[Rfam]
RNA sequence: GAAGGAAUGCACGCGGGGGAUGCCUAGGCAUCCGCCGGCGACGAAGGACGGGCCAAGCCCCGAAAGUCCGGUACGAGGCGCAAAGGGCCUUUGACUACCGGGGUUCCGAAUGGGGAAACCCACGCGCAAGCGUAUCCUCUAGAUGAAUACAUAGUCUAGCGGAGGCAAACCCGGGGAACUGAAACAUCUCAGUACCCGGAGGAAAAGAAAUCAACCGAGAUUCCCGUAGUAGUGGUGAGCGAACCGGGAGGAGCCCAGACGGGUUGCAUACAGUGGACGGAAAGCGAAGCGGGAUGGAAAGCCCCCCCACAGCAGGUGACAGGCCUGUAGCGAUCUUUAAGCUGAUGUCCGUCGAAGAGUAGGGCGGGACACGUGAAAUCCUGCCUGAAGACGGGGGGACCACCCUCCAAGGCUAAAUACGAGCGGAUGACCGAUAGUGCACAGUACCAUGAGGGAAAGGUGAAAAGCACCCCGAGAGGGGAGUGAAAUAGCGCCUGAAACCGCGUGCAUACAUU
Numbered sequence: 001g002a003a004g005g006a007a008u009g010c011a012c013g014c015g016g017g018g019g020a021u022g023c024c025u026a027g028g029c030a031u032c033c034g035c036c037g038g039c040g041a042c043g044a045a046g047g048a049c050g051g052g053c054c055a056a057g058c059c060c061c062g063a064a065a066g067u068c069c070g071g072u073a074c075g076a077g078g079c080g081c082a083a084a085g086g087g088c089c090u091u092u093g094a095c096u097a098c099c100g101g102g103g104u105u106c107c108g109a110a111u112g113g114g115g116a117a118a119c120c121c122a123c124g125c126g127c128a129a130g131c132g133u134a135u136c137c138u139c140u141a142g143a144u145g146a147a148u149a150c151a152u153a154g155u156c157u158a159g160c161g162g163a164g165g166c167a168a169a170c171c172c173g174g175g176g177a178a179c180u181g182a183a184a185c186a187u188c189u190c191a192g193u194a195c196c197c198g199g200a201g202g203a204a205a206a207g208a209a210a211u212c213a214a215c216c217g218a219g220a221u222u223c224c225c226g227u228a229g230u231a232g233u234g235g236u237g238a239g240c241g242a243a244c245c246g247g248g249a250g251g252a253g254c255c256c257a258g259a260c261g262g263g264u265u266g267c268a269u270a271c272a273g274u275g276g277a278c279g280g281a282a283a284g285c286g287a288a289g290c291g292g293g294a295u296g297g298a299a300a301g302c303c304c305c306c307c308c309a310c311a312g313c314a315g316g317u318g319a320c321a322g323g324c325c326u327g328u329a330g331c332g333a334u335c336u337u338u339a340a341g342c343u344g345a346u347g348u349c350c351g352u353c354g355a356a357g358a359g360u361a362g363g364g365c366g367g368g369a370c371a372c373g374u375g376a377a378a379u380c381c382u383g384c385c386u387g388a389a390g391a392c393g394g395g396g397g398g399a400c401c402a403c404c405c406u407c408c409a410a411g412g413c414u415a416a417a418u419a420c421g422a423g424c425g426g427a428u429g430a431c432c433g434a435u436a437g438u439g440c441a442c443a444g445u446a447c448c449a450u451g452a453g454g455g456a457a458a459g460g461u462g463a464a465a466a467g468c469a470c471c472c473c474g475a476g477a478g479g480g481g482a483g484u485g486a487a488a489u490a491g492c493g494c495c496u497g498a499a500a501c502c503g504c505g506u507g508c509a510u511a512c513a514u515u
Stems, first nucleotide, its partner, number of pairs: 007510010022495001023460002027432002029429007036421002038166002046107003049062003068101006077089003112121003122133004135163003139159006170201001171199005181188002211218002221417001222249005232240002252414004258353005271344004277338001279336003284331002289305001291304003308312001314326003362386008393408005447454002470481004
Background: Shown here is a 515-nucleotide part of an RNA from Fibrobacter succinogenes, a member of the family "Bacterial large subunit ribosomal RNA". Rfam links the family to the GO terms ribosome and structural constituent of ribosome. The family's consensus secondary structure is taken from published work.